[Rfam]
RNA sequence: UGGGUGUGAAGAGAGCAGAGCGCCUGAAGAAUGGCUCCUCUGUGAAUAACACACCCAACAGCAACUUGGGCCUAUUCUUCACAGGUGGCAGGACACCAUGACUUUCCUGUGACAUUAAGCCCAAUACAU
Numbered sequence: 001u002g003g004g005u006g007u008g009a010a011g012a013g014a015g016c017a018g019a020g021c022g023c024c025u026g027a028a029g030a031a032u033g034g035c036u037c038c039u040c041u042g043u044g045a046a047u048a049a050c051a052c053a054c055c056c057a058a059c060a061g062c063a064a065c066u067u068g069g070g071c072c073u074a075u076u077c078u079u080c081a082c083a084g085g086u087g088g089c090a091g092g093a094c095a096c097c098a099u100g101a102c103u104u105u106c107c108u109g110u111g112a113c114a115u116u117a118a119g120c121c122c123a124a125u126a127c128a129u
Stems, first nucleotide, its partner, number of pairs: 002056007015043006022035003069122002072119001082111002085104001087102001089100002091097002
Dot-bracket structure: .(((((((......((((((.(((........)))..))))))......)))))))............((.(.........((.(.(.((((...)).)).).).....)).......).)).......
RNA: Small nucleolar RNA SNORA11
Organism: Pipistrellus kuhlii